[Rfam]
RNA sequence: AUAUGAGGCCCAGUUAGAGGCCUCACUAACCUGGGGAGGUUAGACUUCCAAAUGGGUAGCAGCGGCACCCUUCUGGAUAGACGGCAACCAGAGACCGGGCUUGUCAGACCUGGUCGGGAAACCCGUCUU
Numbered sequence: 001a002u003a004u005g006a007g008g009c010c011c012a013g014u015u016a017g018a019g020g021c022c023u024c025a026c027u028a029a030c031c032u033g034g035g036g037a038g039g040u041u042a043g044a045c046u047u048c049c050a051a052a053u054g055g056g057u058a059g060c061a062g063c064g065g066c067a068c069c070c071u072u073c074u075g076g077a078u079a080g081a082c083g084g085c086a087a088c089c090a091g092a093g094a095c096c097g098g099g100c101u102u103g104u105c106a107g108a109c110c111u112g113g114u115c116g117g118g119a120a121a122c123c124c125g126u127c128u129u
Stems, first nucleotide, its partner, number of pairs: 005024006026043007047077004054071001055069002059066002079128006093115007
RNA: LAGLIDADG-2 RNA